[Rfam]
RNA sequence: CGGCGGGCCAGGCGCCCCCAACGGUGCCCAGCCUAUCUGUGAGGAUAGGAGUA
Number, nucleotide and partner (000 for none) at each position: 001c000002g000003g000004c000005g000006g000007g000008c000009c000010a000011g028012g027013c026014g025015c024016c023017c000018c000019c000020a000021a000022c000023g016024g015025u014026g013027c012028c011029c000030a000031g000032c000033c048034u047035a046036u045037c044038u043039g000040u000041g000042a000043g038044g037045a036046u035047a034048g033049g000050a000051g000052u000053a000
Rfam assigns this 53-nucleotide sequence from Hyphomonas sp. L-53-1-40 to the family "serC leader". This family is a putative regulatory RNA structure that is found upstream of the serC-serA operon in some alpha-proteobacteria. Taxonomically the source falls in Hyphomonas (Bacteria, Pseudomonadati, Hyphomonadales, Hyphomonadaceae). Its family is annotated with regulation of gene expression in the Gene Ontology.